This 82-nucleotide sequence from Mizuhopecten yessoensis belongs to the Rfam family "mir-315 microRNA precursor family". Gene Ontology terms of the family: miRNA-mediated post-transcriptional gene silencing and RISC complex. The literature on the family includes a 2003 paper in Dev Cell by Aravin et al., "The small RNA profile during Drosophila melanogaster development". The organism belongs to Mizuhopecten, within Eukaryota. A search with the family's covariance model found it, with a score of 70 bits. The base pairs follow the family's consensus structure, which was predicted with RNAalifold.

RNA sequence: AUCUCCUCACCUUUUGAUUGUUGCUCAGAAAGCCAGUUUAUUUGAUAUGGCUAUCGAGCAGCAAUCAAAGAUUGAAGGAGGU
Dot-bracket structure: (((((((....(((((((.(((((((.((.((((..............)))).))))))))).))))))).....)))))))